This 60-nucleotide RNA from Anaerolinea thermolimosa belongs to the Rfam family "Fluoride riboswitch aptamer (crcB RNA motif)". Taxonomically the source falls in Anaerolinea (Bacteria, Bacillati, Anaerolineae, Anaerolineales). Gene Ontology terms of the family: positive regulation of gene expression and response to fluoride.
[Rfam]
RNA sequence: UAUCACCCUGGCGAUGAAGCUCGCCAUAAUUGUCCUCUGACUGAUAGCUUCUACUUUAUG
Numbered sequence: 001u002a003u004c005a006c007c008c009u010g011g012c013g014a015u016g017a018a019g020c021u022c023g024c025c026a027u028a029a030u031u032g033u034c035c036u037c038u039g040a041c042u043g044a045u046a047g048c049u050u051c052u053a054c055u056u057u058a059u060g
Base pairs, nucleotide, nucleotide: 010025011024012023013022016051017050018049019048020047021046032041033040034039